This 185-nucleotide sequence from Thalassobacillus cyri belongs to the Rfam family "Lysine riboswitch aptamer".
RNA sequence: CGGUGAGGUAGAGGCGCAGGCUGCAUAAGUAAUCAACUGGAGAAUGACAACGAUGAUGGUUGGUGAAAGGGUUGUCUGCCGAAGCAUGAAGUAUAGUCAAAUACGGAAAUGCUGGUGCUUUUCCUAAUAGGAAAGGCACUGUCAUGCAUACUAAAGAAAUGGAUGCAUGGUGCGCUACUGAUCGA
Numbered sequence: 001c002g003g004u005g006a007g008g009u010a011g012a013g014g015c016g017c018a019g020g021c022u023g024c025a026u027a028a029g030u031a032a033u034c035a036a037c038u039g040g041a042g043a044a045u046g047a048c049a050a051c052g053a054u055g056a057u058g059g060u061u062g063g064u065g066a067a068a069g070g071g072u073u074g075u076c077u078g079c080c081g082a083a084g085c086a087u088g089a090a091g092u093a094u095a096g097u098c099a100a101a102u103a104c105g106g107a108a109a110u111g112c113u114g115g116u117g118c119u120u121u122u123c124c125u126a127a128u129a130g131g132a133a134a135g136g137c138a139c140u141g142u143c144a145u146g147c148a149u150a151c152u153a154a155a156g157a158a159a160u161g162g163a164u165g166c167a168u169g170g171u172g173c174g175c176u177a178c179u180g181a182u183c184g185a
Stems, first nucleotide, its partner, number of pairs: 007179005016079006023072002032064008083113004087108001091104004114140011142170007
The match comes from Rfam's covariance-model search (113 bits). The family's consensus secondary structure is taken from published work.